Notes: The record is a 136-nucleotide sequence from Propithecus coquereli, which matches "U4 spliceosomal RNA" in Rfam. The family's RNA type in Rfam is spliceosomal small nuclear RNA. A search with the family's covariance model found it, with a score of 82 bits.
RNA sequence: AGCUUUGCUCAGUAGCAGUAUCGUAGCCAAUGAGGUUUAUCCGAGGAGCGAUUAUUGCUAAUUGAGAAUUUUUCCCAAUACCCCGCCAUGAUGACUGGCAAUAUAGUCAGCAUUGGCAUUAAAGAAAAAAAAAACU
Dot-bracket structure: ...................(((((..((.....((.....))..)).)))))................................((((((.((((((......)))))).))).)))...................
Numbered sequence: 001a002g003c004u005u006u007g008c009u010c011a012g013u014a015g016c017a018g019u020a021u022c023g024u025a026g027c028c029a030a031u032g033a034g035g036u037u038u039a040u041c042c043g044a045g046g047a048g049c050g051a052u053u054a055u056u057g058c059u060a061a062u063u064g065a066g067a068a069u070u071u072u073u074c075c076c077a078a079u080a081c082c083c084c085g086c087c088a089u090g091a092u093g094a095c096u097g098g099c100a101a102u103a104u105a106g107u108c109a110g111c112a113u114u115g116g117c118a119u120u121a122a123a124g125a126a127a128a129a130a131a132a133a134a135c136u
Stems, first nucleotide, its partner, number of pairs: 020052005027046002034042002085117003088113003092109006